Rfam assigns this 69-nucleotide RNA from Equus caballus to the family "mir-193 microRNA precursor family". On this family, see Linsen et al., BMC Genomics 2010: "Small RNA expression and strain specificity in the rat". Gene Ontology terms of the family: RISC complex and miRNA-mediated post-transcriptional gene silencing.
[Rfam]
RNA sequence: CAGAAUCGGGGUUUUGAGGGCGAGAUGAGUUUAUGUUUUAUCCAACUGGCCCACAAAGUCCCGCUUUUG
Number, nucleotide and partner (000 for none) at each position: 001c069002a068003g067004a066005a065006u000007c063008g062009g061010g060011g000012u058013u057014u056015u055016g054017a000018g052019g051020g050021c049022g000023a047024g046025a000026u044027g043028a000029g000030u000031u000032u000033a000034u000035g000036u000037u000038u000039u000040a000041u000042c000043c027044a026045a000046c024047u023048g000049g021050c020051c019052c018053a000054c016055a015056a014057a013058g012059u000060c010061c009062c008063g007064c000065u005066u004067u003068u002069g001